[Rfam]
RNA sequence: UAUACCUAAACGACGUAAGCCCUACCUCUCUUACAUCCUAACGGCUCCGAAGCCGAUCCAGUGUGAAUAAGUUUUUAUUUUAAACA
Numbered sequence: 001u002a003u004a005c006c007u008a009a010a011c012g013a014c015g016u017a018a019g020c021c022c023u024a025c026c027u028c029u030c031u032u033a034c035a036u037c038c039u040a041a042c043g044g045c046u047c048c049g050a051a052g053c054c055g056a057u058c059c060a061g062u063g064u065g066a067a068u069a070a071g072u073u074u075u076u077a078u079u080u081u082a083a084a085c086a
Base pairs, nucleotide, nucleotide: 034065035064038061039060040057042055043054044053045052046051
Rfam assigns this 86-nucleotide sequence from Neobacillus vireti to the family "BsrC". A search with the family's covariance model found it, with a score of 77 bits. A reference for the family is Saito et al. (2008), "Novel small RNA-encoding genes in the intergenic regions of Bacillus subtilis", Gene. The family has 29 seed sequences and 572 matches in Rfam 15.1.